[Rfam]
RNA sequence: GACAGGAAAGAUGACAAUAUGUUGGCAUAGCAGGUUUUUAGGUCAACAGCUAUGCCAACAUCUUGCCUUCCCUCAACUCU
Numbered sequence: 001g002a003c004a005g006g007a008a009a010g011a012u013g014a015c016a017a018u019a020u021g022u023u024g025g026c027a028u029a030g031c032a033g034g035u036u037u038u039u040a041g042g043u044c045a046a047c048a049g050c051u052a053u054g055c056c057a058a059c060a061u062c063u064u065g066c067c068u069u070c071c072c073u074c075a076a077c078u079c080u
Stems, first nucleotide, its partner, number of pairs: 006074002010070002013067001015065003019061003023057009